[Rfam]
RNA sequence: ACCCGGGAUCCGGCUUUUCAAUAGUUUGAAACCAGCGUUGAAAAUGGUUACAAAGUAUUUGAAAAGUCGUGCUCUGGGA
Numbered sequence: 001a002c003c004c005g006g007g008a009u010c011c012g013g014c015u016u017u018u019c020a021a022u023a024g025u026u027u028g029a030a031a032c033c034a035g036c037g038u039u040g041a042a043a044a045u046g047g048u049u050a051c052a053a054a055g056u057a058u059u060u061g062a063a064a065a066g067u068c069g070u071g072c073u074c075u076g077g078g079a
Stems, first nucleotide, its partner, number of pairs: 003077005009071001011069009020059004025054004030049005
The family of this 79-nucleotide RNA is "mir-85 microRNA precursor family". Pairs were carried over by alignment from the consensus structure, which was predicted with RNAalifold. On this family, see Zisoulis et al., Nat Struct Mol Biol 2010: "Comprehensive discovery of endogenous Argonaute binding sites in Caenorhabditis elegans".